The record is a 138-nucleotide RNA from Pangasianodon hypophthalmus, which matches "Small nucleolar RNA SNORA13" in Rfam. Its Rfam clan is "SNORA13 clan". Pairs were carried over by alignment from the consensus structure, which was predicted with CMfinder. About the family: ACA13 is a member of the H/ACA class of snoRNA that guide the sites of modification of uridines to pseudouridines. The organism belongs to Pangasianodon, within Eukaryota. It is annotated as an H/ACA-box small nucleolar RNA. Rfam links the family to the GO terms RNA processing and nucleolus.
[Rfam]
RNA sequence: GGCCUUGGUGUUGCCCGUUCGUUCCUGUCUGUGAUGAACGUGGUGUCAGAAAAGGCACACAGCAAAUCUUCUCGGGGCGCAGAGUAAAGGCAGGACAUCUCACUGACUCCUGACGCUUCUGCCUCGAUAAGAACACUU
Numbered sequence: 001g002g003c004c005u006u007g008g009u010g011u012u013g014c015c016c017g018u019u020c021g022u023u024c025c026u027g028u029c030u031g032u033g034a035u036g037a038a039c040g041u042g043g044u045g046u047c048a049g050a051a052a053a054g055g056c057a058c059a060c061a062g063c064a065a066a067u068c069u070u071c072u073c074g075g076g077g078c079g080c081a082g083a084g085u086a087a088a089g090g091c092a093g094g095a096c097a098u099c100u101c102a103c104u105g106a107c108u109c110c111u112g113a114c115g116c117u118u119c120u121g122c123c124u125c126g127a128u129a130a131g132a133a134c135a136c137u138u
Base pairs, nucleotide, nucleotide: 002056003055004054005053006052009048010047012045013044014043015042016040017039018038019037020036021035022034023033068131069130070129072126074125075124076123077122078121083120084119